[Rfam]
RNA sequence: UAGAACAAUGUAGAUAAGGGAAGUCGGCAAAAUAGAUCCGUAACUUCGGGAAAAGGAUUGGCUCUAAGGGUCGGGUGCGUCGGGCCUCGGUUCGAAGCCGUCGGACCAAGGCUGGGACUGUUUGGUUCGCGCCAGACGGAUUCGGCUAGGACCGGUGUGUGGAGGGCCUUGGCAGCUUUCGGGCGUCCGGCGCACAAUUAACGAUCGACUUAGAACUGGAACGGACAAGGGGAAUCUGACUGUCUAAUUAAAACAUAGCAUUGCGAUGGUCGGAAAGCGAUGUUGACGCAAUGUGAUUUCUGCCCAGUGCUCUGAAUGUCAAAGUGAAGAGAUUCAAACAAGCGCGGGUAAACGGCGGGAGUAACUAUGACUCUCUUAAGGUAGCCAAAUGCCUCGUCAUCUAAUUAGUGACGCGCAUGAAUGGAUUAACGAGAUUCCCACUGUCCCUAUCUACUAUCUAGCGAAACCACAGCCAAGGGAACGGGCUUGGCGGA
Dot-bracket structure: ((((.....(((((((.(((..............(((((....(....).....)))))((.(((((((((((.((((((((((((..(((.....((.(((((.((..(((((((.(((((((((....))))))))).))))))).)).)))))..)).....)))..))).............)))))))))......)))))..)))))).))(...).......(((((((((..(((.........)))..((((((((...((((.....)))).....))))))))...(((.(((..((((((.(..(((.....((((....)))).....))))))))..)))))((((((.......))))))(...)...............(((((.......)))))..........)))....)).)))))))....))).)))))))..))))............(((((........)))))....
RNA: Eukaryotic large subunit ribosomal RNA, nucleotides 1885 to 2378